IS605-orfB-I RNA: a 193-nucleotide RNA sequence. The base pairs follow the family's consensus structure, which is taken from published work. Rfam's curators put it in the seed alignment.
Nucleotides: 193
Stems, first nucleotide, its partner, number of pairs: 001052008010041006018035005023029001067122008081111007092102002095099001128145005134190006140166001147160005171183004
Number, partner (000 for none) and nucleotide at each position: 001052a002051c003050c004049u005048u006047a007046u008045a009000c010041a011040a012039a013038u014037g015036u016000a017000u018035u019034a020033a021032c022031u023029g024000c025000a026000a027000g028000a029023c030000a031022a032021g033020u034019u035018a036015g037014c038013a039012u040011u041010u042000c043000c044000c045008u046007a047006u048005a049004a050003g051002g052001u053000g054000g055000u056000u057000u058000u059000a060000g061000u062000u063000a064000g065000a066000a067122g068121c069120c070119u071118u072117a073116a074115c075000g076000a077000u078000a079000a080000u081111u082110a083109g084108u085107a086106u087105u088000g089000u090000a091000u092102g093101g094000c095099a096000u097000g098000u099095u100000g101093u102092u103000g104000a105087a106086a107085u108084a109083c110082u111081a112000u113000g114000a115074g116073u117072u118071a119070a120069g121068g122067u123000g124000a125000a126000a127000u128145a129144g130143g131142u132141u133000a134190a135189c136188c137187g138186u139185g140166a141132g142131a143130c144129c145128u146000u147160a148159a149158g150157u151156u152000g153000a154000a155000a156151a157150a158149c159148u160147u161000u162000a163000a164000a165000a166140u167000u168000g169000a170000a171183c172182u173181a174180a175000u176000g177000u178000a179000u180174u181173u182172a183171g184000u185139u186138a187137c188136g189135g190134u191000u192000c193000g